[Rfam]
RNA sequence: CUGGAGGACUAAGAAAGUGGAGCCAGUGCAUUAUACUGGCUCCACUGAUACUAUCCUCCUAGAUUGAAUGGUGGAAGAACAAGGCCUGUCUGUGAGGUAAAGGCAGGACCUACUUCCUCUACCGACAGGG
Numbered sequence: 001c002u003g004g005a006g007g008a009c010u011a012a013g014a015a016a017g018u019g020g021a022g023c024c025a026g027u028g029c030a031u032u033a034u035a036c037u038g039g040c041u042c043c044a045c046u047g048a049u050a051c052u053a054u055c056c057u058c059c060u061a062g063a064u065u066g067a068a069u070g071g072u073g074g075a076a077g078a079a080c081a082a083g084g085c086c087u088g089u090c091u092g093u094g095a096g097g098u099a100a101a102g103g104c105a106g107g108a109c110c111u112a113c114u115u116c117c118u119c120u121a122c123c124g125a126c127a128g129g130g
Base pairs, nucleotide, nucleotide: 003059004058005057006056007055008054010050011049018044019043020042021041022040023039024038026034027033028032070123071122072121073120074119075118077116082111083110084109085107086106087105088104

Background:
The family of this 130-nucleotide RNA sequence from Acanthisitta chloris is "Small Cajal body specific RNA 15". Rfam classes the family as a small Cajal body RNA. scaRNAs are a specific class of small nuclear RNAs which localise to the Cajal bodies and guide the modification of RNA polymerase II transcribed spliceosomal RNAs U1, U2, U4, U5 and U12. ACA45 belongs to the H/ACA box class of guide RNAs as it has the predicted hairpin-hinge-hairpin-tail structure, the conserved H/ACA-box motifs and is found associated with GAR1. ACA45 is predicted to guide the pseudouridylation of residue U37 of the U2 spliceosomal snRNA. The family is grouped with related families in Rfam's "SCARNA4 clan". For this family Rfam cites "Cajal body-specific small nuclear RNAs: a novel class of 2'-O-methylation and pseudouridylation guide RNAs" (Darzacq et al., EMBO J, 2002). Gene Ontology terms of the family: nucleolus, Cajal body and RNA processing.